The family of this 121-nucleotide sequence from Koleobacter methoxysyntrophicus is "Molybdenum/Tungsten riboswitch aptamer (Moco RNA motif)".
Lineage of the source: Bacteria > Clostridia > Koleobacterales > Koleobacteraceae > Koleobacter.
A search with the family's covariance model found it, with a score of 66 bits.

RNA sequence: AAAUCGUCAUUUCUCCGAACCAGAGGACUAAGGGAAAUAAUUCCUAUGAAAUCUGGUCGCCAGGGUGUAUCUGGAAACGGAUAUGCCUCCCUUAUCGGAAAGGAGAAAUUUAAUCAAAUUU
Numbered sequence: 001a002a003a004u005c006g007u008c009a010u011u012u013c014u015c016c017g018a019a020c021c022a023g024a025g026g027a028c029u030a031a032g033g034g035a036a037a038u039a040a041u042u043c044c045u046a047u048g049a050a051a052u053c054u055g056g057u058c059g060c061c062a063g064g065g066u067g068u069a070u071c072u073g074g075a076a077a078c079g080g081a082u083a084u085g086c087c088u089c090c091c092u093u094a095u096c097g098g099a100a101a102g103g104a105g106a107a108a109u110u111u112a113a114u115c116a117a118a119u120u121u
Stems, first nucleotide, its partner, number of pairs: 011107006019057006028048001032045004063088011089098002